[Rfam]
Shown here is a 100-nucleotide RNA from Pleuronectes platessa, a member of the family "Vault RNA".
Rfam classes the family as a non-coding RNA gene.
The base pairs follow the family's consensus structure, which is taken from published work.
Lineage of the source: Eukaryota > Chordata > Euteleosteomorpha > Pleuronectiformes > Pleuronectes.
The family has 73 seed sequences and 2,873 matches in Rfam 15.1.

RNA sequence: GCGCUGGUUUAGCUCAGUGGUUACUUCAUCUACUUUCUUUCAGAAUAACGAUUACCAGUCCCUCACGGGAUCGAAACCACGGGCGCUGUCCAGUGUUUUC
Dot-bracket structure: .((((((....((((.((((....(((.............................................))).)))))))).....)))))).....